[Rfam]
RNA sequence: CGCGUGCUCCGGGGUCGGUGUAAUUCCGAGCCGGCGGUGAUAGUCCGCGACCCGCGGUCUUUUGUGUGUUGAGACCACGGUUGAGCCGGUGAAAUUCCGGCGCCGACGGUGAAAGUCCGGAUGGGAGGGGCACGCG
Numbered sequence: 001c002g003c004g005u006g007c008u009c010c011g012g013g014g015u016c017g018g019u020g021u022a023a024u025u026c027c028g029a030g031c032c033g034g035c036g037g038u039g040a041u042a043g044u045c046c047g048c049g050a051c052c053c054g055c056g057g058u059c060u061u062u063u064g065u066g067u068g069u070u071g072a073g074a075c076c077a078c079g080g081u082u083g084a085g086c087c088g089g090u091g092a093a094a095u096u097c098c099g100g101c102g103c104c105g106a107c108g109g110u111g112a113a114a115g116u117c118c119g120g121a122u123g124g125g126a127g128g129g130g131c132a133c134g135c136g
Stems, first nucleotide, its partner, number of pairs: 003134008016028003030116002032105002034048004043103002052080002085101005107119003